[Rfam]
RNA sequence: CGCGUAUUUUGCCCAGGCGGAGCUCGACCGCCGGUUCAAGCGAUGAUCGGGUUCCCAAUGGACCUUUGGGACGAUCAUCGGGACGUCCACGGGGGGACGUCCACGGGGUCGAGCCGAUCUGCCGGCUGUAGCCGAUCGCUCCG
Number, nucleotide and partner (000 for none) at each position: 001c000002g000003c000004g000005u000006a000007u000008u000009u000010u000011g000012c000013c000014c000015a000016g032017g031018c030019g029020g028021a000022g000023c000024u000025c000026g000027a000028c020029c019030g018031c017032c016033g000034g000035u000036u000037c000038a000039a000040g000041c000042g000043a000044u000045g000046a000047u000048c000049g000050g000051g000052u000053u000054c000055c000056c000057a000058a000059u000060g000061g000062a000063c000064c000065u000066u000067u000068g000069g000070g000071a000072c000073g000074a000075u000076c000077a000078u000079c000080g000081g000082g000083a000084c000085g000086u000087c000088c000089a000090c000091g000092g000093g000094g000095g000096g000097a000098c000099g000100u000101c000102c000103a000104c143105g142106g141107g140108g139109u000110c000111g000112a000113g000114c000115c138116g137117a000118u135119c134120u000121g132122c131123c000124g129125g000126c000127u000128g000129u124130a000131g122132c121133c000134g119135a118136u000137c116138g115139c108140u107141c106142c105143g104
RNA: ALIL pseudoknot